[Rfam]
RNA sequence: AAGUCCUUUAAGUCAAUCCUGUGAGGUUGAGAAGGUUUCGGAUUUUUUAGUAGAUAGCAACUUGUAUGCUAUCGGUCUGUCCUCUCGCCAAAACAUGGUGGGAGGAUUUUUAUU
Numbered sequence: 001a002a003g004u005c006c007u008u009u010a011a012g013u014c015a016a017u018c019c020u021g022u023g024a025g026g027u028u029g030a031g032a033a034g035g036u037u038u039c040g041g042a043u044u045u046u047u048u049a050g051u052a053g054a055u056a057g058c059a060a061c062u063u064g065u066a067u068g069c070u071a072u073c074g075g076u077c078u079g080u081c082c083u084c085u086c087g088c089c090a091a092a093a094c095a096u097g098g099u100g101g102g103a104g105g106a107u108u109u110u111u112a113u114u
Stems, first nucleotide, its partner, number of pairs: 003037001005035005013030006045074001048071005054065004079107012
Annotation:
Rfam assigns this 114-nucleotide RNA from Niallia taxi to the family "PyrR binding site". It is annotated as a cis-regulatory element. From the family's description: This family represents the PyrR binding site and terminator structure.